Overview: This 584-nucleotide part of an RNA from Roseibium suaedae belongs to the Rfam family "Bacterial large subunit ribosomal RNA". A reference for the family is Yusupov et al. (2001), "Crystal structure of the ribosome at 5.5 A resolution", Science. The match comes from Rfam's covariance-model search (2717 bits).
RNA sequence: CCUGCGGUCAGACGGAAAGACCCCGUGCACCUUUACUACAGCUUCACACUGGUAUUCGUGUCGACAUGUGUAGGAUAGGUGGUAGACGUUGAAGCCAGGGCGCCAGCCUUGGUGGAGUCAUCCUUGAAAUACCACCCUUGUCUGCAUGGAUAUCUAACCGCGGUACAACAAUAUCCGGGACCGUGUGUGGCGGGUAGUUUGACUGGGGCGGUCGCCUCCCAAAUGGUAACGGAGGCGCGCGAAGGUGGGCUCAGAGCGGUCGGAAAUCGCUCGUUGAGUGCAAUGGCAUAAGCCUGCCUGACUGCGAGACUGACAAGUCGAGCAGAGUCGAAAGACGGCCAUAGUGAUCCGGUGGUCCCUCGUGGAAGGGCCAUCGCUCAACGGAUAAAAGGUACGCCGGGGAUAACAGGCUGAUGAUGCCCAAGAGUCCAUAUCGACGGCAUUGUUUGGCACCUCGAUGUCGACUCAUCACAUCCUGGGGCUGGAGCAGGUCCCAAGGGUUCGGCUGUUCGCCGAUUAAAGUGGUACGUGAGUUGGGUUCAGAACGUCGCGAGACAGUUCGGUCCCUAUCUGCCGUGGGUGUA
Numbered sequence: 001c002c003u004g005c006g007g008u009c010a011g012a013c014g015g016a017a018a019g020a021c022c023c024c025g026u027g028c029a030c031c032u033u034u035a036c037u038a039c040a041g042c043u044u045c046a047c048a049c050u051g052g053u054a055u056u057c058g059u060g061u062c063g064a065c066a067u068g069u070g071u072a073g074g075a076u077a078g079g080u081g082g083u084a085g086a087c088g089u090u091g092a093a094g095c096c097a098g099g100g101c102g103c104c105a106g107c108c109u110u111g112g113u114g115g116a117g118u119c120a121u122c123c124u125u126g127a128a129a130u131a132c133c134a135c136c137c138u139u140g141u142c143u144g145c146a147u148g149g150a151u152a153u154c155u156a157a158c159c160g161c162g163g164u165a166c167a168a169c170a171a172u173a174u175c176c177g178g179g180a181c182c183g184u185g186u187g188u189g190g191c192g193g194g195u196a197g198u199u200u201g202a203c204u205g206g207g208g209c210g211g212u213c214g215c216c217u218c219c220c221a222a223a224u225g226g227u228a229a230c231g232g233a234g235g236c237g238c239g240c241g242a243a244g245g246u247g248g249g250c251u252c253a254g255a256g257c258g259g260u261c262g263g264a265a266a267u268c269g270c271u272c273g274u275u276g277a278g279u280g281c282a283a284u285g286g287c288a289u290a291a292g293c294c295u296g297c298c299u300g301a302c303u304g305c306g307a308g309a310c311u312g313a314c315a316a317g318u319c320g321a322g323c324a325g326a327g328u329c330g331a332a333a334g335a336c337g338g339c340c341a342u343a344g345u346g347a348u349c350c351g352g353u354g355g356u357c358c359c360u361c362g363u364g365g366a367a368g369g370g371c372c373a374u375c376g377c378u379c380a381a382c383g384g385a386u387a388a389a390a391g392g393u394a395c396g397c398c399g400g401g402g403a404u405a406a407c408a409g410g411c412u413g414a415u416g417a418u419g420c421c422c423a424a425g426a427g428u429c430c431a432u433a434u435c436g437a438c439g440g441c442a443u444u445g446u447u448u449g450g451c452a453c454c455u456c457g458a459u460g461u462c463g464a465c466u467c468a469u470c471a472c473a474u475c476c477u478g479g480g481g482c483u484g485g486a487g488c489a490g491g492u493c494c495c496a497a498g499g500g501u502u503c504g505g506c507u508g509u510u511c512g513c514c515g516a517u518u519a520a521a522g523u524g525g526u527a528c529g530u531g532a533g534u535u536g537g538g539u540u541c542a543g544a545a546c547g548u549c550g551c552g553a554g555a556c557a558g559u560u561c562g563g564u565c566c567c568u569a570u571c572u573g574c575c576g577u578g579g580g581u582g583u584a
Stems, first nucleotide, its partner, number of pairs: 001580008010572003014567002022401004027397002029393005035198004042190002045187004051154011063142004068137001078136005085119003094113008158178003162175004201213004214236006237382001239339002245297006251277002254272006278287002302325004308319003327336003350376007358369002410451003414448001415445007425435002462537001463535004467529001468526005475500002478495006502516005543561004547556003